[Rfam]
RNA sequence: GUCAGAUGAUUUGAAUUUGUUUGCUGAUCUCCUGUGAGGCUCAAUAAUAGCAUGUUAGAGUUCUGAUGGCA
Numbered sequence: 001g002u003c004a005g006a007u008g009a010u011u012u013g014a015a016u017u018u019g020u021u022u023g024c025u026g027a028u029c030u031c032c033u034g035u036g037a038g039g040c041u042c043a044a045u046a047a048u049a050g051c052a053u054g055u056u057a058g059a060g061u062u063c064u065g066a067u068g069g070c071a
Stems, first nucleotide, its partner, number of pairs: 001070004
A member of the RNA family "Small nucleolar RNA SNORD28" from Erinaceus europaeus, 71 nucleotides long. Rfam links the family to the GO terms RNA processing and nucleolus. The family's consensus secondary structure was predicted with PFOLD. Rfam 15.1 lists 229 matches to the family in 149 species.